[Rfam]
RNA sequence: GAGUUAUGGUGUGUGGCGAGGUUAAGGGCUGUUAGGUCUGUAGCCGCAGGGAAACCGAGUCUGAAUAGGGCGCUAGUCGCAUGCCAUAGACCCGAAGCCGUACGAUCUAUCCAUGUCCAGGUUGAAGUCCGGGUGACACCGGAUGGAGGACCGAACCAGGGCCUGUUGAAAAAGGCUUGGAUGAGGUGUGGAUAGGAGUGAAAAGCUAAUCGAGUACGGUGAUAGCUGGUU
Numbered sequence: 001g002a003g004u005u006a007u008g009g010u011g012u013g014u015g016g017c018g019a020g021g022u023u024a025a026g027g028g029c030u031g032u033u034a035g036g037u038c039u040g041u042a043g044c045c046g047c048a049g050g051g052a053a054a055c056c057g058a059g060u061c062u063g064a065a066u067a068g069g070g071c072g073c074u075a076g077u078c079g080c081a082u083g084c085c086a087u088a089g090a091c092c093c094g095a096a097g098c099c100g101u102a103c104g105a106u107c108u109a110u111c112c113a114u115g116u117c118c119a120g121g122u123u124g125a126a127g128u129c130c131g132g133g134u135g136a137c138a139c140c141g142g143a144u145g146g147a148g149g150a151c152c153g154a155a156c157c158a159g160g161g162c163c164u165g166u167u168g169a170a171a172a173a174g175g176c177u178u179g180g181a182u183g184a185g186g187u188g189u190g191g192a193u194a195g196g197a198g199u200g201a202a203a204a205g206c207u208a209a210u211c212g213a214g215u216a217c218g219g220u221g222a223u224a225g226c227u228g229g230u231u
Stems, first nucleotide, its partner, number of pairs: 005088013020045004026039003049056002059071004091229002094226001098219006107195011118183001120152004127144006156180003160177005197207003
The family of this 231-nucleotide part of an RNA from Thermanaerovibrio acidaminovorans is "Bacterial large subunit ribosomal RNA".
Taxonomically the source falls in Thermanaerovibrio acidaminovorans (Bacteria, Synergistales, Synergistaceae, Thermanaerovibrio).